Shown here is a 117-nucleotide sequence from Sediminivirga luteola, a member of the family "Glycine riboswitch aptamer". The match comes from Rfam's covariance-model search (51 bits). About the family: This family represents the bacterial glycine riboswitch. Rfam 15.1 lists 9,425 matches to the family in 5,228 species.

Nucleotides: 117
Base pairs, nucleotide, nucleotide: 006112007111008110009109010108011107012106013105019059020058021057022056061098062097063096064094068092070090074085075084
Number, partner (000 for none) and nucleotide at each position: 001000c002000g003000a004000a005000c006112u007111g008110c009109a010108g011107u012106g013105g014000g015000a016000g017000a018000g019059c020058u021057c022056c023000g024000c025000g026000c027000c028000c029000u030000a031000c032000c033000c034000g035000g036000c037000a038000c039000c040000c041000a042000g043000c044000c045000g046000g047000g048000g049000a050000a051000g052000a053000c054000g055000a056022g057021g058020a059019g060000c061098g062097c063096c064094g065000u066000a067000g068092g069000u070090g071000c072000a073000a074085c075084c076000c077000c078000c079000u080000c081000c082000c083000c084075g085074g086000g087000a088000a089000a090070c091000u092068c093000u094064c095000a096063g097062g098061c099000c100000c101000a102000g103000u104000a105013c106012c107011a108010c109009u110008g111007c112006a113000g114000a115000c116000a117000g